RNA sequence: GCAGUGCAGGACUUAGUUGCUUGUGAGCAGUGCCUUGCUUUCUGUCUUGUUCACAGUGGCUAAGUUCCACACCUC
Numbered sequence: 001g002c003a004g005u006g007c008a009g010g011a012c013u014u015a016g017u018u019g020c021u022u023g024u025g026a027g028c029a030g031u032g033c034c035u036u037g038c039u040u041u042c043u044g045u046c047u048u049g050u051u052c053a054c055a056g057u058g059g060c061u062a063a064g065u066u067c068c069a070c071a072c073c074u075c
Stems, first nucleotide, its partner, number of pairs: 009067010023054007

About this RNA: The family of this 75-nucleotide RNA from Petromyzon marinus is "mir-27 microRNA precursor family". Its family is annotated with miRNA-mediated post-transcriptional gene silencing and RISC complex in the Gene Ontology. Lineage of the source: Eukaryota > Chordata > Vertebrata > Petromyzontiformes > Petromyzon.